[Rfam]
RNA sequence: CACAGUGUAAAAUCGUGAAGGAUGCGAACCUGCAGCAGGUUCGAGUCGAGCGAAAGCGAGACAACGUUGCGACAGCAACGGUCCGCAGGACAAGGCGAAGCCGGGUAAUCCUGCACGACCCACCA
Numbered sequence: 001c002a003c004a005g006u007g008u009a010a011a012a013u014c015g016u017g018a019a020g021g022a023u024g025c026g027a028a029c030c031u032g033c034a035g036c037a038g039g040u041u042c043g044a045g046u047c048g049a050g051c052g053a054a055a056g057c058g059a060g061a062c063a064a065c066g067u068u069g070c071g072a073c074a075g076c077a078a079c080g081g082u083c084c085g086c087a088g089g090a091c092a093a094g095g096c097g098a099a100g101c102c103g104g105g106u107a108a109u110c111c112u113g114c115a116c117g118a119c120c121c122a123c124c125a
Stems, first nucleotide, its partner, number of pairs: 015116003019112003023108001032091001040087001042085002047058002065080006
RNA: RtT RNA
Organism: Duffyella gerundensis